The record is a 172-nucleotide RNA from Massilia sp. NR 4-1, which matches "Manganese Mn2+ riboswitch aptamer (yybP-ykoY)" in Rfam. It scores 68 bits against the family's covariance model. NCBI's taxonomy places the organism under Bacteria, Pseudomonadota, Betaproteobacteria, Burkholderiales, Massilia.
[Rfam]
RNA sequence: UGCCCGUUCUUUGGGGAGUAGUCGGCUUCCGGUCCCACCGGAAGGAUCUGCGUCAACAUAAUCGGCCCGCAGGCCGUGGCGCAGAUGGCCGCAAGGCUUGGCGAGACCAUUGAUCCACGGGCGGCCGGAUUGGGCCGGGGUCGCCCAUGGGUCAUUGGUAGACGUCCGGCCC
Number, nucleotide and partner (000 for none) at each position: 001u000002g000003c000004c000005c000006g000007u000008u000009c000010u000011u000012u000013g000014g000015g000016g000017a000018g000019u000020a000021g000022u000023c000024g000025g000026c044027u043028u042029c000030c000031g000032g000033u000034c000035c000036c000037a000038c000039c000040g000041g000042a028043a027044g026045g000046a086047u085048c084049u083050g082051c081052g080053u079054c078055a077056a000057c000058a000059u000060a000061a000062u000063c076064g075065g074066c073067c072068c000069g000070c000071a000072g067073g066074c065075c064076g063077u055078g054079g053080c052081g051082c050083a049084g048085a047086u046087g000088g000089c000090c000091g000092c000093a000094a000095g000096g000097c000098u000099u000100g000101g000102c000103g000104a000105g000106a000107c000108c000109a000110u000111u000112g000113a000114u000115c000116c000117a000118c000119g000120g000121g000122c000123g000124g000125c000126c000127g000128g000129a000130u000131u000132g000133g000134g000135c000136c000137g000138g000139g000140g000141u000142c000143g000144c000145c000146c000147a000148u000149g000150g000151g000152u000153c000154a000155u000156u000157g000158g000159u000160a000161g000162a000163c000164g000165u000166c000167c000168g000169g000170c000171c000172c000